This 136-nucleotide RNA from Adiantum capillus-veneris belongs to the Rfam family "Small nucleolar RNA snoR77". Rfam classes the family as an H/ACA-box small nucleolar RNA. On this family, see Marker et al., Curr Biol 2002: "Experimental RNomics: identification of 140 candidates for small non-messenger RNAs in the plant Arabidopsis thaliana". The source organism's lineage runs through Eukaryota, Streptophytina, Polypodiales, Pteridaceae and Adiantum.
[Rfam]
RNA sequence: AGGCAGCCUGAUGUGCAAGACAAUGCAGUGCACAACAGGUGUUAAUCCGCCCCUAUACAAUCGUGCUUGCUUUUCAGAACUGCAUAGAGCUCUCAUAUAUCUCAAUGUUGCUGUUCUUGUAACUCAAGCUCACAUU
Numbered sequence: 001a002g003g004c005a006g007c008c009u010g011a012u013g014u015g016c017a018a019g020a021c022a023a024u025g026c027a028g029u030g031c032a033c034a035a036c037a038g039g040u041g042u043u044a045a046u047c048c049g050c051c052c053c054u055a056u057a058c059a060a061u062c063g064u065g066c067u068u069g070c071u072u073u074u075c076a077g078a079a080c081u082g083c084a085u086a087g088a089g090c091u092c093u094c095a096u097a098u099a100u101c102u103c104a105a106u107g108u109u110g111c112u113g114u115u116c117u118u119g120u121a122a123c124u125c126a127a128g129c130u131c132a133c134a135u136u
Stems, first nucleotide, its partner, number of pairs: 002043004007039002010036001012034006065129002069125001071122001076117005082111003087103003